[Rfam]
RNA sequence: UUCUUAUCUAGAGUGACUGAGGGACUGGCCCUAUGAAGUCCAGCAACCUAGACUUUUUGAUGGUGCUAAUUCCAGCAGGUUUUAUAUCUGAGAGAUGAGAA
Numbered sequence: 001u002u003c004u005u006a007u008c009u010a011g012a013g014u015g016a017c018u019g020a021g022g023g024a025c026u027g028g029c030c031c032u033a034u035g036a037a038g039u040c041c042a043g044c045a046a047c048c049u050a051g052a053c054u055u056u057u058u059g060a061u062g063g064u065g066c067u068a069a070u071u072c073c074a075g076c077a078g079g080u081u082u083u084a085u086a087u088c089u090g091a092g093a094g095a096u097g098a099g100a101a
Base pairs, nucleotide, nucleotide: 001101002100003099004098005097006096007095008094013041015040016039017038021031022030023029025075026074027073028072042067043066044065045064047063048062049059050058051057052056071093076090077089078088079087080086

This 101-nucleotide sequence from Clostridium luticellarii belongs to the Rfam family "SAM riboswitch aptamer (S box leader)". Taxonomically the source falls in Clostridium (Bacteria, Bacillati, Clostridia, Eubacteriales).